This 269-nucleotide sequence from Listeria monocytogenes belongs to the Rfam family "Listeria Hfq binding LhrA". Its family is annotated with mRNA binding in the Gene Ontology. Rfam's curators write: This RNA was identifed by screening for RNA molecules which co-immunoprecipitated with the RNA chaperone Hfq. The family's RNA type in Rfam is small RNA. On this family, see Christiansen et al., RNA 2006: "Identification of small Hfq-binding RNAs in Listeria monocytogenes". Lineage of the source: Bacteria > Bacillati > Bacillota > Listeria monocytogenes > Listeria monocytogenes serotype 4b. The base pairs follow the family's consensus structure, which is taken from published work.
RNA sequence: AGGAUAGAGUUUUACCUCGAUGAAAGUUUCAUUUUUAUUAAUGUGAUUUUCAUGGGGAUAAGACCCUAUCAUGGUUAUAAUGACUUUUGGUGUAUCCAUCUUCCAAUAGAAUGGCAACUAGUCAGACAUCUGUUUAGACACCAAAAUCAUUAUUUGUUUUCAUUCAUCUCAUUGGCCGUGUAGUUCAUGUCUAUGCCUCAUCCCGUUAUGCAUAGACGCCCGAACAUGAUGGCAACGCUGGAAAUGUUUAUUUCGAGCGUCUUUUUUUG
Numbered sequence: 001a002g003g004a005u006a007g008a009g010u011u012u013u014a015c016c017u018c019g020a021u022g023a024a025a026g027u028u029u030c031a032u033u034u035u036u037a038u039u040a041a042u043g044u045g046a047u048u049u050u051c052a053u054g055g056g057g058a059u060a061a062g063a064c065c066c067u068a069u070c071a072u073g074g075u076u077a078u079a080a081u082g083a084c085u086u087u088u089g090g091u092g093u094a095u096c097c098a099u100c101u102u103c104c105a106a107u108a109g110a111a112u113g114g115c116a117a118c119u120a121g122u123c124a125g126a127c128a129u130c131u132g133u134u135u136a137g138a139c140a141c142c143a144a145a146a147u148c149a150u151u152a153u154u155u156g157u158u159u160u161c162a163u164u165c166a167u168c169u170c171a172u173u174g175g176c177c178g179u180g181u182a183g184u185u186c187a188u189g190u191c192u193a194u195g196c197c198u199c200a201u202c203c204c205g206u207u208a209u210g211c212a213u214a215g216a217c218g219c220c221c222g223a224a225c226a227u228g229a230u231g232g233c234a235a236c237g238c239u240g241g242a243a244a245u246g247u248u249u250a251u252u253u254c255g256a257g258c259g260u261c262u263u264u265u266u267u268u269g
Stems, first nucleotide, its partner, number of pairs: 003070005009064006015057004020053009030043004077153007085146009105134006112124004175233005183225004188218009235260005241254005